[Rfam]
RNA sequence: CGUCAGCGACCCCACUGCCUGCCCAAUUCCCGGCCACGGCACCAAUCCGAUUGUCGCCGGCUCCCCCGACGU
Numbered sequence: 001c002g003u004c005a006g007c008g009a010c011c012c013c014a015c016u017g018c019c020u021g022c023c024c025a026a027u028u029c030c031c032g033g034c035c036a037c038g039g040c041a042c043c044a045a046u047c048c049g050a051u052u053g054u055c056g057c058c059g060g061c062u063c064c065c066c067c068g069a070c071g072u
Stems, first nucleotide, its partner, number of pairs: 007071002017040003020036002023033002051069003056064001
Rfam assigns this 72-nucleotide sequence from Pseudomonas guineae to the family "Pseudomonas sRNA P10". For this family Rfam cites "Identification of 17 Pseudomonas aeruginosa sRNAs and prediction of sRNA-encoding genes in 10 diverse pathogens using the bioinformatic tool sRNAPredict2" (Livny et al., Nucleic Acids Res, 2006). Taxonomically the source falls in Pseudomonas (Bacteria, Pseudomonadota, Gammaproteobacteria, Pseudomonadales). The family's consensus secondary structure was predicted with WAR.